[Rfam]
RNA sequence: GCCGCGGCUAGGGUAGCUCCCGAAAAGACCGUCCGCACGGUCCUGCCGCGUCUUCCCUAACCUUGG
Numbered sequence: 001g002c003c004g005c006g007g008c009u010a011g012g013g014u015a016g017c018u019c020c021c022g023a024a025a026a027g028a029c030c031g032u033c034c035g036c037a038c039g040g041u042c043c044u045g046c047c048g049c050g051u052c053u054u055c056c057c058u059a060a061c062c063u064u065g066g
Stems, first nucleotide, its partner, number of pairs: 001052001003050006011021003027042005036065002
Shown here is a 66-nucleotide RNA sequence from Beta vulgaris, a member of the family "int-alpA RNA". NCBI's taxonomy places the organism under Eukaryota, Streptophyta, Spermatophyta, Pentapetalae, Beta vulgaris. The family has 167 seed sequences and 577 matches in Rfam 15.1. Pairs were carried over by alignment from the consensus structure, which is taken from published work. It is annotated as a small RNA.